MIR812 microRNA precursor family: a 208-nucleotide RNA sequence from Oryza nivara.
The family's consensus secondary structure was predicted with RNAalifold.
RNA sequence: AAUAAGUGCAGUUUUAACACCGUUCAUGCUCAACGUUUGACCGUUCGUCUUAUUUGAAAAACAAUUAUGACUAGUAUUUUUAUUGUUAUUAGAUGAUAAUACAUGAAUAGUACUUUAUGUGUGACUAAUAUUUUUAUUUUUUUAUAAUUUUUUCAAAUAAGACGGACAGUCAAAACGCUGAACACGGAUAUCUAUGGCUGCACUUAUU
Number, nucleotide and partner (000 for none) at each position: 001a000002a000003u000004a000005a000006g000007u000008g000009c000010a000011g000012u000013u000014u000015u000016a000017a000018c000019a000020c000021c000022g000023u000024u000025c000026a000027u000028g000029c000030u181031c180032a179033a000034c177035g000036u174037u173038u172039g171040a170041c169042c000043g167044u166045u165046c164047g163048u162049c161050u160051u159052a158053u157054u000055u000056g000057a000058a000059a000060a000061a000062c000063a000064a000065u000066u000067a000068u000069g000070a000071c000072u000073a000074g000075u000076a000077u000078u000079u000080u000081u000082a000083u000084u000085g000086u000087u000088a000089u000090u000091a000092g000093a000094u000095g000096a000097u000098a000099a000100u000101a000102c000103a000104u000105g000106a000107a000108u000109a000110g000111u000112a000113c000114u000115u000116u000117a000118u000119g000120u000121g000122u000123g000124a000125c000126u000127a000128a000129u000130a000131u000132u000133u000134u000135u000136a000137u000138u000139u000140u000141u000142u000143u000144a000145u000146a000147a000148u000149u000150u000151u000152u000153u000154c000155a000156a000157a053158u052159a051160a050161g049162a048163c047164g046165g045166a044167c043168a000169g041170u040171c039172a038173a037174a036175a000176c000177g034178c000179u032180g031181a030182a000183c000184a000185c000186g000187g000188a000189u000190a000191u000192c000193u000194a000195u000196g000197g000198c000199u000200g000201c000202a000203c000204u000205u000206a000207u000208u000